[Rfam]
RNA sequence: GCGUGGAUCGGCCCGCUGCGUCCGACGCAGGGGGCUGGGGGAUAUCGCCGCCUCAUUCCCCGCAGGCGGUGGACCGGUCCGGGGGGCGAGGCCCGCCUCCCGGACCGUG
Numbered sequence: 001g002c003g004u005g006g007a008u009c010g011g012c013c014c015g016c017u018g019c020g021u022c023c024g025a026c027g028c029a030g031g032g033g034g035c036u037g038g039g040g041g042a043u044a045u046c047g048c049c050g051c052c053u054c055a056u057u058c059c060c061c062g063c064a065g066g067c068g069g070u071g072g073a074c075c076g077g078u079c080c081g082g083g084g085g086g087c088g089a090g091g092c093c094c095g096c097c098u099c100c101c102g103g104a105c106c107g108u109g
Stems, first nucleotide, its partner, number of pairs: 001108002006075001008073001009037006016030003038043001045072009076106013
Rfam assigns this 109-nucleotide RNA sequence to the family "Streptomyces RNA 4115". Identified by deep sequencing of transcriptome at the end of exponential growth phase. Sequencing size consistent with notrthern blot size. Streptomyces specific. Pairs were carried over by alignment from the consensus structure.